[Rfam]
RNA sequence: ACGCCGCCCGGUGCGGCGCGUGUGCUCCGCUCGCAGGGGCCCGAACGCGGGGGUGGUGCCGUGUCGGCGCAGCACCACCCCCGCGCC
Numbered sequence: 001a002c003g004c005c006g007c008c009c010g011g012u013g014c015g016g017c018g019c020g021u022g023u024g025c026u027c028c029g030c031u032c033g034c035a036g037g038g039g040c041c042c043g044a045a046c047g048c049g050g051g052g053g054u055g056g057u058g059c060c061g062u063g064u065c066g067g068c069g070c071a072g073c074a075c076c077a078c079c080c081c082c083g084c085g086c087c
Stems, first nucleotide, its partner, number of pairs: 002018006020046002023043002026039003047084013061070003
The record is an 87-nucleotide RNA from Streptomyces sp. MA5143a, which matches "Streptomyces RNA 6106" in Rfam. The match comes from Rfam's covariance-model search (53 bits). The base pairs follow the family's consensus structure. It is annotated as a small RNA. A reference for the family is Vockenhuber et al. (2011), "Deep sequencing-based identification of small non-coding RNAs in Streptomyces coelicolor", RNA Biol. Taxonomically the source falls in Streptomyces (Bacteria, Actinomycetes, Kitasatosporales, Streptomycetaceae). From the family's description: Identified by deep sequencing of transcriptome at the end of exponential growth phase. Appears smaller on northern blot than sequencing transcript. This indicates processing step. Streptomyces specific.